[Rfam]
RNA sequence: UUCGUGCGGCAUCUCGGUUCAAAUUUGUUUCCCAAUGUUGCUCAUGGUCUCGCUUACUAUUCUACGAGACUGUUUUUGGAGUGUCAAACCGAGUUCAGAAGAAAGUGAGCGUCUUAGUACCCACUAACCAUGUCUUCUUCCUGCUUCAGGAGUUGUGGAGACUUGGUGGGUCGGUGGUUCACACAUGC
Numbered sequence: 001u002u003c004g005u006g007c008g009g010c011a012u013c014u015c016g017g018u019u020c021a022a023a024u025u026u027g028u029u030u031c032c033c034a035a036u037g038u039u040g041c042u043c044a045u046g047g048u049c050u051c052g053c054u055u056a057c058u059a060u061u062c063u064a065c066g067a068g069a070c071u072g073u074u075u076u077u078g079g080a081g082u083g084u085c086a087a088a089c090c091g092a093g094u095u096c097a098g099a100a101g102a103a104a105g106u107g108a109g110c111g112u113c114u115u116a117g118u119a120c121c122c123a124c125u126a127a128c129c130a131u132g133u134c135u136u137c138u139u140c141c142u143g144c145u146u147c148a149g150g151a152g153u154u155g156u157g158g159a160g161a162c163u164u165g166g167u168g169g170g171u172c173g174g175u176g177g178u179u180c181a182c183a184c185a186u187g188c
Stems, first nucleotide, its partner, number of pairs: 022095006040082004044075001048069004105182006124169002127167004132162006